[Rfam]
RNA sequence: AAGAAAGUGACUGCCGCCCCGCACAGGGGCGAAGCUAAUAGACCAAUAACAAAACAAGCUUCAUGAGGGCACAGGCGCAUCAAACAGUUCUACAACCGUCCAACCCAAGCGCCAGCGGCAUCAC
Numbered sequence: 001a002a003g004a005a006a007g008u009g010a011c012u013g014c015c016g017c018c019c020c021g022c023a024c025a026g027g028g029g030c031g032a033a034g035c036u037a038a039u040a041g042a043c044c045a046a047u048a049a050c051a052a053a054a055c056a057a058g059c060u061u062c063a064u065g066a067g068g069g070c071a072c073a074g075g076c077g078c079a080u081c082a083a084a085c086a087g088u089u090c091u092a093c094a095a096c097c098g099u100c101c102a103a104c105c106c107a108a109g110c111g112c113c114a115g116c117g118g119c120a121u122c123a124c
Stems, first nucleotide, its partner, number of pairs: 011087003015031006058078002109116002

The family of this 124-nucleotide sequence from Caballeronia glathei is "Burkholderia sRNA Bp1_Cand684_SIPHT". The family has 14 seed sequences and 176 matches in Rfam 15.1. The match comes from Rfam's covariance-model search (54 bits).